[Rfam]
RNA sequence: UGGUUGGCUUUAGCUCAGCAGCUCCUUUGGCAGCAGCAUCUAACUAAUCGUGUGGCAAGUAGACUCAAUACCCACAGGUGCUCACCACCCCUUUG
Numbered sequence: 001u002g003g004u005u006g007g008c009u010u011u012a013g014c015u016c017a018g019c020a021g022c023u024c025c026u027u028u029g030g031c032a033g034c035a036g037c038a039u040c041u042a043a044c045u046a047a048u049c050g051u052g053u054g055g056c057a058a059g060u061a062g063a064c065u066c067a068a069u070a071c072c073c074a075c076a077g078g079u080g081c082u083c084a085c086c087a088c089c090c091c092u093u094u095g
Stems, first nucleotide, its partner, number of pairs: 002090002005087003013079003018075001021072001027068004
The family of this 95-nucleotide RNA from Octodon degus is "Vault RNA". NCBI's taxonomy places the organism under Eukaryota, Deuterostomia, Mammalia, Rodentia, Octodon. The family's consensus secondary structure is taken from published work. It is annotated as a non-coding RNA gene. Rfam's curators write: This family of RNAs are found as part of the enigmatic vault ribonucleoprotein complex. The match comes from Rfam's covariance-model search (36 bits). For this family Rfam cites "Evolution of Vault RNAs" (Stadler et al., Mol Biol Evol, 2009). Rfam 15.1 lists 2,873 matches to the family in 431 species.